A member of the RNA family "Fluoride riboswitch aptamer (crcB RNA motif)" from Thermotoga petrophila, 52 nucleotides long. It is one of the family's seed sequences. Gene Ontology terms of the family: response to fluoride and positive regulation of gene expression.
[Rfam]
RNA sequence: GGGCGAUGAGGCCCGCCCAAACUGCCCUGAAAAGGGCUGAUGGCCUCUACUG
Numbered sequence: 001g002g003g004c005g006a007u008g009a010g011g012c013c014c015g016c017c018c019a020a021a022c023u024g025c026c027c028u029g030a031a032a033a034g035g036g037c038u039g040a041u042g043g044c045c046u047c048u049a050c051u052g
Stems, first nucleotide, its partner, number of pairs: 002017004008047006024037004
The family's consensus secondary structure is taken from published work.